[Rfam]
RNA sequence: CGUUUUCUCCGAAUGGCACUUGAAGAAUUCACGGGAGUUUUGUGAAGUCCCCGUGGUUCUCUCGUGCCGUACGAAGCGAACU
Numbered sequence: 001c002g003u004u005u006u007c008u009c010c011g012a013a014u015g016g017c018a019c020u021u022g023a024a025g026a027a028u029u030c031a032c033g034g035g036a037g038u039u040u041u042g043u044g045a046a047g048u049c050c051c052c053g054u055g056g057u058u059c060u061c062u063c064g065u066g067c068c069g070u071a072c073g074a075a076g077c078g079a080a081c082u
Stems, first nucleotide, its partner, number of pairs: 003080003007076002010073001013070006022061001025058002029056006
Dot-bracket structure: ..(((.((.(..((((((...(..((..((((((................))))))))..)...))))))..).)).)))..
The family of this 82-nucleotide RNA sequence from Allacma fusca is "mir-263 microRNA precursor family". Rfam links the family to the GO terms miRNA-mediated post-transcriptional gene silencing and RISC complex. The family is grouped with related families in Rfam's "mir-182 clan". NCBI's taxonomy places the organism under Eukaryota, Eumetazoa, Collembola, Symphypleona, Allacma.